[Rfam]
RNA sequence: CAUCCAUCGAGACCGGCUGAGGGACAGGCCCUUAGAAGCCGGGGCAACCCAACGCAGCGCAAGCUGCGUGAAGGUGCCAAUUCCUGCGGCCCGCCUCAUGGCGUUGGUCGGAAGAUGGUUG
Number, nucleotide and partner (000 for none) at each position: 001c121002a120003u000004c118005c117006a116007u115008c114009g000010a000011g000012a000013c042014c041015g040016g039017c038018u000019g000020a000021g031022g030023g029024a000025c086026a085027g084028g083029c023030c022031c021032u000033u000034a000035g000036a000037a000038g017039c016040c015041g014042g013043g078044g077045c076046a075047a000048c074049c073050c070051a069052a000053c068054g067055c066056a065057g000058c000059g000060c000061a000062a000063g000064c000065u056066g055067c054068g053069u051070g050071a000072a000073g049074g048075u046076g045077c044078c043079a000080a000081u000082u113083c028084c027085u026086g025087c110088g109089g108090c107091c106092c000093g000094c000095c000096u000097c000098a000099u000100g000101g000102c000103g000104u000105u000106g091107g090108u089109c088110g087111g000112a000113a082114g008115a007116u006117g005118g004119u000120u002121g001
This 121-nucleotide sequence from Lysobacter antibioticus belongs to the Rfam family "SAM riboswitch aptamer (S box leader)". NCBI's taxonomy places the organism under Bacteria, Pseudomonadota, Lysobacterales, Lysobacteraceae, Lysobacter.